RNA sequence: CCUAUGGAGAGUACAAGAACUUGUAAGUAGUGAUUGACUUACCAACACGAAAGCAUACUCGUUGAAAUAGGAA
Numbered sequence: 001c002c003u004a005u006g007g008a009g010a011g012u013a014c015a016a017g018a019a020c021u022u023g024u025a026a027g028u029a030g031u032g033a034u035u036g037a038c039u040u041a042c043c044a045a046c047a048c049g050a051a052a053g054c055a056u057a058c059u060c061g062u063u064g065a066a067a068u069a070g071g072a073a
Base pairs, nucleotide, nucleotide: 001071002070003069004068005067009060010059011058012057013056022055023054024053030048031047032046035044036043